c-di-AMP riboswitch aptamer (ydaO/yuaA leader): a 152-nucleotide RNA from Thermoleophilum album. A search with the family's covariance model found it, with a score of 49 bits.
RNA sequence: CGGCGACCUGCGCUGAGUCCCGGUUCGCCGGGAGCGGGGGACCCAUUUGCGCCGCGUUCGCGGCGUAGGGGCGAGUCGCCGCGCGAGCGCGGCGUAGCGCCGGACGGCGCGAGCCCGACAGCUAACCCCGUAAGCGUGGCCAACGUGCUGAU
Numbered sequence: 001c002g003g004c005g006a007c008c009u010g011c012g013c014u015g016a017g018u019c020c021c022g023g024u025u026c027g028c029c030g031g032g033a034g035c036g037g038g039g040g041a042c043c044c045a046u047u048u049g050c051g052c053c054g055c056g057u058u059c060g061c062g063g064c065g066u067a068g069g070g071g072c073g074a075g076u077c078g079c080c081g082c083g084c085g086a087g088c089g090c091g092g093c094g095u096a097g098c099g100c101c102g103g104a105c106g107g108c109g110c111g112a113g114c115c116c117g118a119c120a121g122c123u124a125a126c127c128c129c130g131u132a133a134g135c136g137u138g139g140c141c142a143a144c145g146u147g148c149u150g151a152u
Stems, first nucleotide, its partner, number of pairs: 011136004018033005034131006044068001069116003077094004097110004